The record is a 108-nucleotide sequence from Panicum virgatum, which matches "Small nucleolar RNA Z157/R69/R10" in Rfam. Its family is annotated with nucleolus and RNA processing in the Gene Ontology. Rfam 15.1 lists 836 matches to the family in 232 species. The family's consensus secondary structure was predicted with PFOLD. The organism belongs to Panicum sect. Hiantes, within Eukaryota.
RNA sequence: AUUUGGGUGAUGACGAACUUUAGUGUUUUGGACUAGAGUUUGUCUUUCUGAUACUGCUACAUCGUGGUUGUAGUUGAAGACCAAACCCUUGGCUGUCUGAACUCAAAU
Numbered sequence: 001a002u003u004u005g006g007g008u009g010a011u012g013a014c015g016a017a018c019u020u021u022a023g024u025g026u027u028u029u030g031g032a033c034u035a036g037a038g039u040u041u042g043u044c045u046u047u048c049u050g051a052u053a054c055u056g057c058u059a060c061a062u063c064g065u066g067g068u069u070g071u072a073g074u075u076g077a078a079g080a081c082c083a084a085a086c087c088c089u090u091g092g093c094u095g096u097c098u099g100a101a102c103u104c105a106a107a108u
Stems, first nucleotide, its partner, number of pairs: 001108008045079004052072001053068005